[Rfam]
RNA sequence: CCCAGGGCGUUGCCCUGGGCUAUGAUAUUCCGCCCCUUCGGGACU
Numbered sequence: 001c002c003c004a005g006g007g008c009g010u011u012g013c014c015c016u017g018g019g020c021u022a023u024g025a026u027a028u029u030c031c032g033c034c035c036c037u038u039c040g041g042g043a044c045u
Stems, first nucleotide, its partner, number of pairs: 001019008032044001034042003
RNA: Acido-Lenti-1 RNA